Plastid-ndhJ 3UTR RNA: a 58-nucleotide sequence from Gossypium arboreum. The family has 50 seed sequences and 869 matches in Rfam 15.1. Plastid ndhJ is a non-coding RNA (ncRNA) present in plastids. It was identified as a short stem-loop motif in the 3 prime untranslate region (3UTR) of ndhJ gene. A reference for the family is Richter et al. (2023), "Retrograde signaling in plants: A critical review focusing on the GUN pathway and beyond", Plant Commun. It scores 47 bits against the family's covariance model.
[Rfam]
RNA sequence: CCGUGAACUUUGUAUCGCGCACAUCACUUAGAUGAACUCUAGAGAGCUCACGGAUCAA
Numbered sequence: 001c002c003g004u005g006a007a008c009u010u011u012g013u014a015u016c017g018c019g020c021a022c023a024u025c026a027c028u029u030a031g032a033u034g035a036a037c038u039c040u041a042g043a044g045a046g047c048u049c050a051c052g053g054a055u056c057a058a
Stems, first nucleotide, its partner, number of pairs: 019037001022034004